[Rfam]
RNA: L31-Firmicutes ribosomal protein leader
RNA sequence: CUAUGACGAGAAAUAUUUGUCAUGGCGGAAGGAG
Numbered sequence: 001c002u003a004u005g006a007c008g009a010g011a012a013a014u015a016u017u018u019g020u021c022a023u024g025g026c027g028g029a030a031g032g033a034g
Stems, first nucleotide, its partner, number of pairs: 001025010
Dot-bracket structure: ((((((((((.....)))))))))).........